[Rfam]
RNA: Potassium channel RNA editing signal
Organism: Cynoglossus semilaevis
RNA sequence: GUAGGUUACGGAGACAUGGUCCCAGUGACCAUCGGGGGGAAAAUUGUCGGCUCUCUCUGCGCAAUUGCAGGUGUGCUAACCAUUGCUUUACCAGUGCCUGUAAUUGUGUCCAAC
Numbered sequence: 001g002u003a004g005g006u007u008a009c010g011g012a013g014a015c016a017u018g019g020u021c022c023c024a025g026u027g028a029c030c031a032u033c034g035g036g037g038g039g040a041a042a043a044u045u046g047u048c049g050g051c052u053c054u055c056u057c058u059g060c061g062c063a064a065u066u067g068c069a070g071g072u073g074u075g076c077u078a079a080c081c082a083u084u085g086c087u088u089u090a091c092c093a094g095u096g097c098c099u100g101u102a103a104u105u106g107u108g109u110c111c112a113a114c
Base pairs, nucleotide, nucleotide: 001114002113004111005110007108008107009106010105011104014101015100016099018097021094037077038076040074050062051061